Rfam assigns this 85-nucleotide RNA from Neogobius melanostomus to the family "mir-135 microRNA precursor family". The base pairs follow the family's consensus structure, which was predicted with PFOLD. Taxonomically the source falls in Neogobius (Eukaryota, Gnathostomata, Actinopterygii, Actinopteri). For this family Rfam cites "Identification of tissue-specific microRNAs from mouse" (Lagos-Quintana et al., Curr Biol, 2002).
RNA sequence: GUGCCAUUGUGUACUAUGGCUUUUUAUUCCUAUGUGACGGUGACAUAUGUUCGCGUAGGGAUGGAAGCCAUGUUACAAGUGGUAA
Numbered sequence: 001g002u003g004c005c006a007u008u009g010u011g012u013a014c015u016a017u018g019g020c021u022u023u024u025u026a027u028u029c030c031u032a033u034g035u036g037a038c039g040g041u042g043a044c045a046u047a048u049g050u051u052c053g054c055g056u057a058g059g060g061a062u063g064g065a066a067g068c069c070a071u072g073u074u075a076c077a078a079g080u081g082g083u084a085a
Base pairs, nucleotide, nucleotide: 002084003083004082005081006080007079010077011076012075013074015072016071017070018069019068020067021066022065023064026062027061028060029059030058031057032056033055034054035053036052037051